[Rfam]
RNA: Purine riboswitch aptamer
Organism: Falsibacillus pallidus
RNA sequence: AUCAACUUCAUACGGUUUCCUUAUAUAAAGAUGGUGAUAUGGACCAUACGUUUCUACCCGGCUGCCGUAAAUAGCUGGACUAUAGGGAAAGUCAGAUUGAUU
Numbered sequence: 001a002u003c004a005a006c007u008u009c010a011u012a013c014g015g016u017u018u019c020c021u022u023a024u025a026u027a028a029a030g031a032u033g034g035u036g037a038u039a040u041g042g043a044c045c046a047u048a049c050g051u052u053u054c055u056a057c058c059c060g061g062c063u064g065c066c067g068u069a070a071a072u073a074g075c076u077g078g079a080c081u082a083u084a085g086g087g088a089a090a091g092u093c094a095g096a097u098u099g100a101u102u
Base pairs, nucleotide, nucleotide: 018088019087020086021085022084023083024082025081031047032046033045034044035043058078059077060076061075062074063073064072